[Rfam]
RNA: S. pyogenes small RNA 779816
RNA sequence: GUAAAGAGACCUACUGCAAAGCAGGUUUUUACUAUAUCGCAUUCGCCUUACGCUCGGACCGUCCGCCUUACGCUCGGACCGUCCAAAGUUGAGCGUAGGGCUUUUU
Dot-bracket structure: ....((((((((...((...))))))))))..............(((((((((((.(((............................)))))))))))))).....